Ascomycota telomerase RNA: a 177-nucleotide part of an RNA from Lasiosphaeris hirsuta. It scores 938 bits against the family's covariance model. A reference for the family is Qi et al. (2013), "The common ancestral core of vertebrate and fungal telomerase RNAs", Nucleic Acids Res. Its family is annotated with telomerase activity, telomere maintenance via telomerase and telomerase catalytic core complex in the Gene Ontology. The family's RNA type in Rfam is non-coding RNA gene. The pairing is the family consensus, mapped onto this sequence. The organism belongs to Lasiosphaeris, within Eukaryota.
RNA sequence: UAACCCGUGUCGUCCGCUCUUGAGCAGUGGCACAUUUCCUUCAGCUGGCGCCGAAAGGACGCCAGACGAAGACGACAGCACGAUUUUUGAGGAUGUAUUUUGUCCGUGCGAUAAUGCCCUCCCUGCUCGCCAUUCCGAUGGUGCUGAUGGGAGAGGAAACAAAAACGAGUCCCAGUU
Number, nucleotide and partner (000 for none) at each position: 001u000002a000003a000004c000005c000006c000007g033008u032009g031010u000011c000012g000013u000014c030015c029016g028017c027018u000019c024020u000021u000022g000023a000024g019025c000026a000027g017028u016029g015030g014031c009032a008033c007034a000035u000036u000037u075038c074039c071040u070041u069042c068043a000044g000045c065046u064047g063048g062049c061050g000051c000052c057053g000054a000055a000056a000057g052058g000059a000060c000061g049062c048063c047064a046065g045066a000067c000068g042069a041070a040071g039072a000073c000074g038075a037076c000077a000078g000079c000080a000081c000082g000083a000084u000085u000086u000087u000088u000089g000090a000091g000092g171093a170094u169095g166096u165097a000098u164099u163100u162101u161102g160103u159104c000105c000106g000107u000108g000109c000110g000111a000112u000113a000114a000115u000116g000117c156118c155119c153120u152121c151122c150123c000124u000125g000126c000127u000128c149129g148130c000131c146132a000133u000134u000135c000136c000137g000138a142139u000140g000141g000142u138143g000144c000145u000146g131147a000148u129149g128150g122151g121152a120153g119154a000155g118156g117157a000158a000159a103160c102161a101162a100163a099164a098165a096166c095167g000168a000169g094170u093171c092172c000173c000174a000175g000176u000177u000